[Rfam]
RNA sequence: GUGCGUUUAGUAAAAAUUAAACCUAUGAAAUCGCCAAUUAUGAGUUAGGUGCUUUAAUCGUUUAAUCAUGAAUGC
Numbered sequence: 001g002u003g004c005g006u007u008u009a010g011u012a013a014a015a016a017u018u019a020a021a022c023c024u025a026u027g028a029a030a031u032c033g034c035c036a037a038u039u040a041u042g043a044g045u046u047a048g049g050u051g052c053u054u055u056a057a058u059c060g061u062u063u064a065a066u067c068a069u070g071a072a073u074g075c
Stems, first nucleotide, its partner, number of pairs: 003075006010026003040069003044066008
A member of the RNA family "Plastid-ycf2 5UTR RNA" from Anisodus acutangulus, 75 nucleotides long. About the family: Plastid ycf2 is a non-coding RNA (ncRNA) recognised in plastids. It was found in the prime untranslated region (5UTR) of ycf2 genes, it presents a tRNA-like motif which suggests it can be involved in mRNA maturation, particularly involved in defining the precise 5' end of the transcript. Rfam classes the family as a cis-regulatory element. It scores 66 bits against the family's covariance model.